[Rfam]
The record is a 67-nucleotide sequence from Cnephaeus nilssonii, which matches "mir-9256 microRNA precursor family" in Rfam. The source organism's lineage runs through Eukaryota, Bilateria, Vertebrata, Yangochiroptera and Cnephaeus. The family's consensus secondary structure was predicted with RNAalifold. The match comes from Rfam's covariance-model search (82 bits).
RNA sequence: AUAUACACUGAGUGGCCAGAUUAUUAUGAUCUCUGAAAGCAUAAUAAUCUGGCCAAUCAGUGUGUUG
Numbered sequence: 001a002u003a004u005a006c007a008c009u010g011a012g013u014g015g016c017c018a019g020a021u022u023a024u025u026a027u028g029a030u031c032u033c034u035g036a037a038a039g040c041a042u043a044a045u046a047a048u049c050u051g052g053c054c055a056a057u058c059a060g061u062g063u064g065u066u067g
Stems, first nucleotide, its partner, number of pairs: 004064008013055005019049010